[Rfam]
RNA sequence: AGACUCAGAGAGAGAAGCAGGGUCUGAUCCGUAGCCUCCGUGGCAGCUGUUGAUCAGCCCUUGCCUCUCUCUUUCUGUCUG
Numbered sequence: 001a002g003a004c005u006c007a008g009a010g011a012g013a014g015a016a017g018c019a020g021g022g023u024c025u026g027a028u029c030c031g032u033a034g035c036c037u038c039c040g041u042g043g044c045a046g047c048u049g050u051u052g053a054u055c056a057g058c059c060c061u062u063g064c065c066u067c068u069c070u071c072u073u074u075c076u077g078u079c080u081g
Stems, first nucleotide, its partner, number of pairs: 008073008017064004022059001024057006032049004

mir-574 microRNA precursor family: an 81-nucleotide RNA sequence from Myotis lucifugus.
Taxonomically the source falls in Myotis (Eukaryota, Opisthokonta, Amniota, Eutheria).
It scores 90 bits against the family's covariance model.
The family's consensus secondary structure was predicted with RNAalifold.
Clan: mir-574 microRNA precursor clan.